[Rfam]
RNA sequence: UUGCGACAUUCUGGAAAGUGGACAGGCUUCGGCCGGGUCCCACCGAAGGGGUAAGCGACGCUGCUGAAGCGCCGUGAAAGCUCUCAGGUCCGGUGACAGGUGGGGGCAG
Numbered sequence: 001u002u003g004c005g006a007c008a009u010u011c012u013g014g015a016a017a018g019u020g021g022a023c024a025g026g027c028u029u030c031g032g033c034c035g036g037g038u039c040c041c042a043c044c045g046a047a048g049g050g051g052u053a054a055g056c057g058a059c060g061c062u063g064c065u066g067a068a069g070c071g072c073c074g075u076g077a078a079a080g081c082u083c084u085c086a087g088g089u090c091c092g093g094u095g096a097c098a099g100g101u102g103g104g105g106g107c108a109g
Stems, first nucleotide, its partner, number of pairs: 007103001010100004020040004042089003045085002049083003055075002
RNA: Glycine riboswitch aptamer